A member of the RNA family "tp2" from Biostraticola tofi, 113 nucleotides long. The family's RNA type in Rfam is small RNA. Pairs were carried over by alignment from the consensus structure, which was predicted with RNAalifold. It scores 84 bits against the family's covariance model.

RNA sequence: GGUGUUCCUUAUCUAUCUCUAAUAUUGGUUUAAUUGGAGCCUGUCUUCCUGUGCUCUUGAAAAAAACACACGAAGACAGGCCCAUAGCUUUCGUUGCCGCGUUUAGUGCCUCA
Numbered sequence: 001g002g003u004g005u006u007c008c009u010u011a012u013c014u015a016u017c018u019c020u021a022a023u024a025u026u027g028g029u030u031u032a033a034u035u036g037g038a039g040c041c042u043g044u045c046u047u048c049c050u051g052u053g054c055u056c057u058u059g060a061a062a063a064a065a066a067c068a069c070a071c072g073a074a075g076a077c078a079g080g081c082c083c084a085u086a087g088c089u090u091u092c093g094u095u096g097c098c099g100c101g102u103u104u105a106g107u108g109c110c111u112c113a
Stems, first nucleotide, its partner, number of pairs: 001098004022089001023086002037083001039081007048072001050070003055065001057063002